[Rfam]
RNA sequence: UCCGUCGUGAGGCGGAAUCUGAAGGAAGCCCGAGGCAAAGCCACGACCCGAGGAACACGAACCCCAUAGGAGGCUGUGCCGCUCGGGUGAGCUGGCCGAACACAGCAAAACCCGAAGCUGCCAAAGGGCGGUGCGGUAGAUGGGGCGGGUGCGGGGUGAAGGUCAGCGUU
Numbered sequence: 001u002c003c004g005u006c007g008u009g010a011g012g013c014g015g016a017a018u019c020u021g022a023a024g025g026a027a028g029c030c031c032g033a034g035g036c037a038a039a040g041c042c043a044c045g046a047c048c049c050g051a052g053g054a055a056c057a058c059g060a061a062c063c064c065c066a067u068a069g070g071a072g073g074c075u076g077u078g079c080c081g082c083u084c085g086g087g088u089g090a091g092c093u094g095g096c097c098g099a100a101c102a103c104a105g106c107a108a109a110a111c112c113c114g115a116a117g118c119u120g121c122c123a124a125a126g127g128g129c130g131g132u133g134c135g136g137u138a139g140a141u142g143g144g145g146c147g148g149g150u151g152c153g154g155g156g157u158g159a160a161g162g163u164c165a166g167c168g169u170u
Stems, first nucleotide, its partner, number of pairs: 001016006031168002035163002040157003044153002046150005062145006073137003077133007085113004091106004